[Rfam]
RNA sequence: UCGGGAUGUCGCGACUGGCGUUGGGGUGGGUCACCACCGGGGAGCGACCGACCGGCAUUCGACCGCGCGCCUGGGCCGAUGUG
Numbered sequence: 001u002c003g004g005g006a007u008g009u010c011g012c013g014a015c016u017g018g019c020g021u022u023g024g025g026g027u028g029g030g031u032c033a034c035c036a037c038c039g040g041g042g043a044g045c046g047a048c049c050g051a052c053c054g055g056c057a058u059u060c061g062a063c064c065g066c067g068c069g070c071c072u073g074g075g076c077c078g079a080u081g082u083g
Base pairs, nucleotide, nucleotide: 003053004052008048009047010046011045012044015041016040017071018070019069020068021067026037027036028035029034060078061077063075064074
Shown here is an 83-nucleotide sequence from Microbacterium sp. SYP-A9085, a member of the family "ZMP/ZTP riboswitch aptamer (pfl RNA motif)". Taxonomically the source falls in Microbacterium (Bacteria, Actinomycetota, Actinomycetes, Microbacteriaceae).